A member of the RNA family "Group II catalytic intron D1-D4-6" from Reinekea marinisedimentorum, 263 nucleotides long.
Taxonomically the source falls in Reinekea (Bacteria, Gammaproteobacteria, Oceanospirillales, Saccharospirillaceae).
A reference for the family is Bonen and Vogel (2001), "The ins and outs of group II introns", Trends Genet.
Group II introns are found in rRNA, tRNA and mRNA of organelles in fungi, plants and protists, and also in mRNA in bacteria.
The pairing is the family consensus, mapped onto this sequence.

RNA sequence: UAAGUCCCUGUCGGGAAAGGUCUAAUCAACCACCCGUAUCGAGUGUUGCGCCUGUGGCGGAGUCAUUUUUUUUUCUGAUGAACAAAACAGGUGAAGCGUACACAGAGAAUCUGGUAGGCCAUAGCGGUUUUCGUGACCGUGAAGUGCUGGCAUCGCUCCGAAAAGUGUAUGAGUUCCAGUUGGUGAGAGCUGUAACGUACUCGAAACCUAUAUGAACCUUCUGUACUGAUUUAGAGGGAACGAACUGGCGGAGUUAUCAAGCC
Numbered sequence: 001u002a003a004g005u006c007c008c009u010g011u012c013g014g015g016a017a018a019g020g021u022c023u024a025a026u027c028a029a030c031c032a033c034c035c036g037u038a039u040c041g042a043g044u045g046u047u048g049c050g051c052c053u054g055u056g057g058c059g060g061a062g063u064c065a066u067u068u069u070u071u072u073u074u075c076u077g078a079u080g081a082a083c084a085a086a087a088c089a090g091g092u093g094a095a096g097c098g099u100a101c102a103c104a105g106a107g108a109a110u111c112u113g114g115u116a117g118g119c120c121a122u123a124g125c126g127g128u129u130u131u132c133g134u135g136a137c138c139g140u141g142a143a144g145u146g147c148u149g150g151c152a153u154c155g156c157u158c159c160g161a162a163a164a165g166u167g168u169a170u171g172a173g174u175u176c177c178a179g180u181u182g183g184u185g186a187g188a189g190c191u192g193u194a195a196c197g198u199a200c201u202c203g204a205a206a207c208c209u210a211u212a213u214g215a216a217c218c219u220u221c222u223g224u225a226c227u228g229a230u231u232u233a234g235a236g237g238g239a240a241c242g243a244a245c246u247g248g249c250g251g252a253g254u255u256a257u258c259a260a261g262c263c
Stems, first nucleotide, its partner, number of pairs: 012036004019031003024231003039106002043103004047098002049093007059083001155254006176248006182208003187202003213242002217238006
Dot-bracket structure: ...........((((...(((..[[[..))).))))..((..(((((((((((((...(.......................)...)))))))...)).)))).))................................................((((((...............(((((((((..(((..........)))...)))....((..((((((......]]].))))))..)))))))))))))).........